[Rfam]
RNA sequence: GGUAGUAGCAAAUAUUCAAAUGAAAACUUUGAAGGCUGAAGACAGUAAAGGUUCCAUGUGAACAACACUUGCACAUGGGUUAGUCGAUCUUAAGAGACAGGGAAAGCCCAUCCGAUAGCGCGCCCACGGUGAGCUUUGAAAAGGAAUCGACUGAGAUGUGGCGGUUGACGGUAAUGUUAGGGAGUUCUGAGACGUCGGUAGGGGCCACAGGAAUAGUUAUCUUUUCUGUUUAACGGCCUGUCCACCCUAGAAACGACUUAGUCGACAGUAGGGUCCAGCGGUAGGAAGGGCACCGCAUGUCGCAUGGUGUCCAGUGUACUCCCAGCGGCCCUUGAAAAUUCAAAAGACCAAGUGCCGUCCGCGCCCAGUUGUACUCAUAACCGCAUCAGGUCUCCAAGGUGAACAGCCUCUGGGUAA
Numbered sequence: 001g002g003u004a005g006u007a008g009c010a011a012a013u014a015u016u017c018a019a020a021u022g023a024a025a026a027c028u029u030u031g032a033a034g035g036c037u038g039a040a041g042a043c044a045g046u047a048a049a050g051g052u053u054c055c056a057u058g059u060g061a062a063c064a065a066c067a068c069u070u071g072c073a074c075a076u077g078g079g080u081u082a083g084u085c086g087a088u089c090u091u092a093a094g095a096g097a098c099a100g101g102g103a104a105a106g107c108c109c110a111u112c113c114g115a116u117a118g119c120g121c122g123c124c125c126a127c128g129g130u131g132a133g134c135u136u137u138g139a140a141a142a143g144g145a146a147u148c149g150a151c152u153g154a155g156a157u158g159u160g161g162c163g164g165u166u167g168a169c170g171g172u173a174a175u176g177u178u179a180g181g182g183a184g185u186u187c188u189g190a191g192a193c194g195u196c197g198g199u200a201g202g203g204g205c206c207a208c209a210g211g212a213a214u215a216g217u218u219a220u221c222u223u224u225u226c227u228g229u230u231u232a233a234c235g236g237c238c239u240g241u242c243c244a245c246c247c248u249a250g251a252a253a254c255g256a257c258u259u260a261g262u263c264g265a266c267a268g269u270a271g272g273g274u275c276c277a278g279c280g281g282u283a284g285g286a287a288g289g290g291c292a293c294c295g296c297a298u299g300u301c302g303c304a305u306g307g308u309g310u311c312c313a314g315u316g317u318a319c320u321c322c323c324a325g326c327g328g329c330c331c332u333u334g335a336a337a338a339u340u341c342a343a344a345a346g347a348c349c350a351a352g353u354g355c356c357g358u359c360c361g362c363g364c365c366c367a368g369u370u371g372u373a374c375u376c377a378u379a380a381c382c383g384c385a386u387c388a389g390g391u392c393u394c395c396a397a398g399g400u401g402a403a404c405a406g407c408c409u410c411u412g413g414g415u416a417a
Base pairs, nucleotide, nucleotide: 015033016032017031018030019029020028034415036413037412045393049375050374054078055077056076057075058074059073063071064070085371086370087369089143090142094137095136096112097111100109101108102107119133121131152367153366155364157363158362159361160360161359162357163356167178168177169176170175185344186343189340190339194329195328196327197326199324201322202321203320204319210230211229213227215225234284236282237281238280244274245273246272247271248270249269254264255263256262291309292308293307294306295305381390382389397409398408399407400406